[Rfam]
RNA sequence: AGCAGAGUAAGUAUUAUGCGUAAAGUGUUAGAGGAUGGGAAGUUGUCUCUAAACGAAAAGUUCAAUUUUUAUUGUAACUUACGAUGUAAUACUGCUUCCGCUGUU
Numbered sequence: 001a002g003c004a005g006a007g008u009a010a011g012u013a014u015u016a017u018g019c020g021u022a023a024a025g026u027g028u029u030a031g032a033g034g035a036u037g038g039g040a041a042g043u044u045g046u047c048u049c050u051a052a053a054c055g056a057a058a059a060g061u062u063c064a065a066u067u068u069u070u071a072u073u074g075u076a077a078c079u080u081a082c083g084a085u086g087u088a089a090u091a092c093u094g095c096u097u098c099c100g101c102u103g104u105u
Stems, first nucleotide, its partner, number of pairs: 001105005010093009019083003025054002028052007038099005058080004